[Rfam]
RNA sequence: UCUCACCGCUGCGCGGCACUCCACUUUAUGCCGCCCAGCGGCAAAUGAUAAGGAGGAAUGACCGCUGUGGCUGGCGGUGCGGCAAUGUGGAGACUUGCCGUAAGGCACCACGGGCUUCGCCCGGUGCGAGACCGUUCCAUGCGGAGGCAGAACGGUUACAGCCAAGACGUAUGGCA
Numbered sequence: 001u002c003u004c005a006c007c008g009c010u011g012c013g014c015g016g017c018a019c020u021c022c023a024c025u026u027u028a029u030g031c032c033g034c035c036c037a038g039c040g041g042c043a044a045a046u047g048a049u050a051a052g053g054a055g056g057a058a059u060g061a062c063c064g065c066u067g068u069g070g071c072u073g074g075c076g077g078u079g080c081g082g083c084a085a086u087g088u089g090g091a092g093a094c095u096u097g098c099c100g101u102a103a104g105g106c107a108c109c110a111c112g113g114g115c116u117u118c119g120c121c122c123g124g125u126g127c128g129a130g131a132c133c134g135u136u137c138c139a140u141g142c143g144g145a146g147g148c149a150g151a152a153c154g155g156u157u158a159c160a161g162c163c164a165a166g167a168c169g170u171a172u173g174g175c176a
Stems, first nucleotide, its partner, number of pairs: 006041006013034006062077004068164006078102008087094002105127005112122002130157008140149003

The family of this 176-nucleotide sequence is "malK-I RNA". The base pairs follow the family's consensus structure, which is taken from published work. The sequence is in the family's curated seed alignment.